The family of this 87-nucleotide RNA from Terrapene triunguis is "Small nucleolar RNA SNORD103/SNORD85". The match comes from Rfam's covariance-model search (51 bits). The base pairs follow the family's consensus structure. On this family, see Huttenhofer et al., EMBO J 2001: "RNomics: an experimental approach that identifies 201 candidates for novel, small, non-messenger RNAs in mouse". Gene Ontology terms of the family: RNA processing and nucleolus. The family has 41 seed sequences and 1,349 matches in Rfam 15.1.

RNA sequence: ACUGGUGAUGACACUUGCCUUGCCCUCACUGAGAAUGCUAUUCAGUAAUGAGAGUGUUUUCUAAGUAUUCAUUUACUCUGAGCCAGA
Numbered sequence: 001a002c003u004g005g006u007g008a009u010g011a012c013a014c015u016u017g018c019c020u021u022g023c024c025c026u027c028a029c030u031g032a033g034a035a036u037g038c039u040a041u042u043c044a045g046u047a048a049u050g051a052g053a054g055u056g057u058u059u060u061c062u063a064a065g066u067a068u069u070c071a072u073u074u075a076c077u078c079u080g081a082g083c084c085a086g087a
Base pairs, nucleotide, nucleotide: 002086003085004084005083006082